[Rfam]
RNA sequence: GCUCGGUAACCGCCUAAUCGGAGUGCUCCACUGACGGAGCGUCCGAGCCGGGGACCCACUAGGUAUCUGGGGUGAAUCCCUUCCGCCGCUCGCGGCGAAGGGUAGGGCUGACUUCCGGCCCGAACCCGUCAGCUAACUCGGUCGGCGGGUGAACGGAAGAAUG
Numbered sequence: 001g002c003u004c005g006g007u008a009a010c011c012g013c014c015u016a017a018u019c020g021g022a023g024u025g026c027u028c029c030a031c032u033g034a035c036g037g038a039g040c041g042u043c044c045g046a047g048c049c050g051g052g053g054a055c056c057c058a059c060u061a062g063g064u065a066u067c068u069g070g071g072g073u074g075a076a077u078c079c080c081u082u083c084c085g086c087c088g089c090u091c092g093c094g095g096c097g098a099a100g101g102g103u104a105g106g107g108c109u110g111a112c113u114u115c116c117g118g119c120c121c122g123a124a125c126c127c128g129u130c131a132g133c134u135a136a137c138u139c140g141g142u143c144g145g146c147g148g149g150u151g152a153a154c155g156g157a158a159g160a161a162u163g
Stems, first nucleotide, its partner, number of pairs: 011147004018046005047142006057069002070127003078102006105121004

The family of this 163-nucleotide sequence from Rhodococcus coprophilus is "c-di-AMP riboswitch aptamer (ydaO/yuaA leader)". Taxonomically the source falls in Rhodococcus (Bacteria, Actinomycetes, Mycobacteriales, Nocardiaceae). This family represents a conserved RNA structure found upstream of the ydaO and yuaA genes in Bacillus subtilis and related genes in other bacteria.